[Rfam]
RNA: Eukaryotic large subunit ribosomal RNA, nucleotides 2951 to 3337
Organism: Colletotrichum tanaceti
RNA sequence: AACCUCGUUGUAAUGGUAAUUAAGCUUAGUACGAGAGGAACCGCUUAUUCAGAUAAUUGGUUUUUGCGGCUGUCUGACUGGGCAGUGCCGCGACGCUACUAUCUGCUAGAUAAUAGCUGAAUACCUCUAAGUCAGAAUCCAUGCUAGAACGCGACGAUACCUCCUGCACGUACAGAUGGAUAUGAAUAGGCUUUAGCUUAGCGUCUUAGCAGGCGAUUACUCUACUGCUCUUGAAGCAGGUAGUGGUAUUUUGCGAAUUGUAAUUUCAGCACGAGCGGGGUUAAAUCCUUUGCAGACGACUUAGAUGUGCGAAAGGGUCCUGUAAGCAGUAGAGUAGCCUUGUUGUUACGAUCUGCUGAGGGUAAGCCCUCCUUUGCCUCGAUUUCC
Numbered sequence: 001a002a003c004c005u006c007g008u009u010g011u012a013a014u015g016g017u018a019a020u021u022a023a024g025c026u027u028a029g030u031a032c033g034a035g036a037g038g039a040a041c042c043g044c045u046u047a048u049u050c051a052g053a054u055a056a057u058u059g060g061u062u063u064u065u066g067c068g069g070c071u072g073u074c075u076g077a078c079u080g081g082g083c084a085g086u087g088c089c090g091c092g093a094c095g096c097u098a099c100u101a102u103c104u105g106c107u108a109g110a111u112a113a114u115a116g117c118u119g120a121a122u123a124c125c126u127c128u129a130a131g132u133c134a135g136a137a138u139c140c141a142u143g144c145u146a147g148a149a150c151g152c153g154a155c156g157a158u159a160c161c162u163c164c165u166g167c168a169c170g171u172a173c174a175g176a177u178g179g180a181u182a183u184g185a186a187u188a189g190g191c192u193u194u195a196g197c198u199u200a201g202c203g204u205c206u207u208a209g210c211a212g213g214c215g216a217u218u219a220c221u222c223u224a225c226u227g228c229u230c231u232u233g234a235a236g237c238a239g240g241u242a243g244u245g246g247u248a249u250u251u252u253g254c255g256a257a258u259u260g261u262a263a264u265u266u267c268a269g270c271a272c273g274a275g276c277g278g279g280g281u282u283a284a285a286u287c288c289u290u291u292g293c294a295g296a297c298g299a300c301u302u303a304g305a306u307g308u309g310c311g312a313a314a315g316g317g318u319c320c321u322g323u324a325a326g327c328a329g330u331a332g333a334g335u336a337g338c339c340u341u342g343u344u345g346u347u348a349c350g351a352u353c354u355g356c357u358g359a360g361g362g363u364a365a366g367c368c369c370u371c372c373u374u375u376g377c378c379u380c381g382a383u384u385u386c387c
Stems, first nucleotide, its partner, number of pairs: 005157007014146004019049001021047005050105005058098003065092005070085006107141001109139001114134001116132003163279005169273001283385005288304002292300001309377005315369003319362002326356004331352001334349005